[Rfam]
RNA sequence: UGCUGUCGGAUGCUCUGACGAUAUUGCACUACUGUACACACAGUUAAGCAGUGCAAUAGUAUUGUCAAAGCGUCAGACACCAGA
Numbered sequence: 001u002g003c004u005g006u007c008g009g010a011u012g013c014u015c016u017g018a019c020g021a022u023a024u025u026g027c028a029c030u031a032c033u034g035u036a037c038a039c040a041c042a043g044u045u046a047a048g049c050a051g052u053g054c055a056a057u058a059g060u061a062u063u064g065u066c067a068a069a070g071c072g073u074c075a076g077a078c079a080c081c082a083g084a
Stems, first nucleotide, its partner, number of pairs: 002081001004079001007076001009074006016067004023057008034041001

Overview
Shown here is an 84-nucleotide sequence from Chiloscyllium punctatum, a member of the family "mir-301 microRNA precursor family". It scores 82 bits against the family's covariance model. The source organism's lineage runs through Eukaryota, Opisthokonta, Gnathostomata, Galeoidea and Chiloscyllium.